[Rfam]
RNA sequence: CAGAAAUGGGGGCUCCUUUGAAGACAAAGAAAGCAUUUCGAAUCGUUUUAUCGCUCAUUGAAGCAGUCUUCCUUUGCCUUGAAGGGAACUCCUAAUUCUU
Number, nucleotide and partner (000 for none) at each position: 001c000002a000003g000004a000005a000006a000007u094008g093009g092010g091011g090012g089013c000014u087015c086016c085017u084018u083019u000020g000021a000022a079023g078024a000025c076026a075027a074028a073029g072030a000031a000032a000033g000034c000035a000036u000037u000038u000039c000040g000041a000042a000043u000044c000045g000046u000047u000048u000049u000050a000051u000052c000053g000054c000055u000056c000057a000058u000059u000060g000061a000062a000063g000064c000065a000066g000067u000068c000069u000070u000071c000072c029073u028074u027075u026076g025077c000078c023079u022080u000081g000082a000083a018084g017085g016086g015087a014088a000089c012090u011091c010092c009093u008094a007095a000096u000097u000098c000099u000100u000

This 100-nucleotide RNA from Amborella trichopoda belongs to the Rfam family "MIR319 microRNA precursor family". Taxonomically the source falls in Amborella (Eukaryota, Embryophyta, Spermatophyta, Magnoliopsida). It scores 64 bits against the family's covariance model.